[Rfam]
RNA sequence: AUGCAGUGAUGAUCUCUUAACUGGUGCUUUUGACUCACUGUUGAAUGAAGACAUGAAUUUCCUUGGCUGUGUCUGAGCAU
Numbered sequence: 001a002u003g004c005a006g007u008g009a010u011g012a013u014c015u016c017u018u019a020a021c022u023g024g025u026g027c028u029u030u031u032g033a034c035u036c037a038c039u040g041u042u043g044a045a046u047g048a049a050g051a052c053a054u055g056a057a058u059u060u061c062c063u064u065g066g067c068u069g070u071g072u073c074u075g076a077g078c079a080u
Base pairs, nucleotide, nucleotide: 001080002079003078004077
About this RNA
Shown here is an 80-nucleotide RNA sequence from Cathartes aura, a member of the family "Small nucleolar RNA SNORD53/SNORD92". A search with the family's covariance model found it, with a score of 47 bits. On this family, see Huttenhofer et al., EMBO J 2001: "RNomics: an experimental approach that identifies 201 candidates for novel, small, non-messenger RNAs in mouse". NCBI's taxonomy places the organism under Eukaryota, Euteleostomi, Amniota, Aves, Cathartes.